[Rfam]
RNA sequence: AGUGCAAUGUUUGAGGCUAUAGCAAAAGUGCUUAUGAUGAGGCCUUGUCAGAUUCCAAGAAAUCUGUGAAAUCUUCU
Numbered sequence: 001a002g003u004g005c006a007a008u009g010u011u012u013g014a015g016g017c018u019a020u021a022g023c024a025a026a027a028g029u030g031c032u033u034a035u036g037a038u039g040a041g042g043c044c045u046u047g048u049c050a051g052a053u054u055c056c057a058a059g060a061a062a063u064c065u066g067u068g069a070a071a072u073c074u075u076c077u
Stems, first nucleotide, its partner, number of pairs: 014045005021077002024074001026072001029039002049066006

Rfam assigns this 77-nucleotide RNA sequence from Crocodylus porosus to the family "Mammalian CPEB3 ribozyme".
The source organism's lineage runs through Eukaryota, Sarcopterygii, Sauropsida, Crocodylia and Crocodylus.
The mammalian CPEB3 ribozyme is a self cleaving RNA located in the second intron of the CPEB3 gene which belongs to a family of genes regulating messenger RNA polyadenylation.